This 118-nucleotide RNA from Clostridiales bacterium KLE1615 belongs to the Rfam family "FMN riboswitch aptamer (RFN element)". Rfam describes the family as follows. The RFN element is a highly conserved domain that is found frequently in the 5'-untranslated regions of prokaryotic mRNAs that encode for flavin mononucleotide (FMN) biosynthesis and transport proteins. The organism belongs to Eubacteriales, within Bacteria.
[Rfam]
RNA sequence: CAACAUCUUCGGGGCAAGGUGAAAUCCCUGACCGGCAGUAAAGUCUGCGAAGCGCAAAAGCGCCCGAUGCGGUGAAACUCCGCAACCGACGGUAUAGUCCGGAUGAAAGAAGAUAUGA
Numbered sequence: 001c002a003a004c005a006u007c008u009u010c011g012g013g014g015c016a017a018g019g020u021g022a023a024a025u026c027c028c029u030g031a032c033c034g035g036c037a038g039u040a041a042a043g044u045c046u047g048c049g050a051a052g053c054g055c056a057a058a059a060g061c062g063c064c065c066g067a068u069g070c071g072g073u074g075a076a077a078c079u080c081c082g083c084a085a086c087c088g089a090c091g092g093u094a095u096a097g098u099c100c101g102g103a104u105g106a107a108a109g110a111a112g113a114u115a116u117g118a
Stems, first nucleotide, its partner, number of pairs: 003116001005114006017029003031098002033088002035048004043086002052063002068084005090101003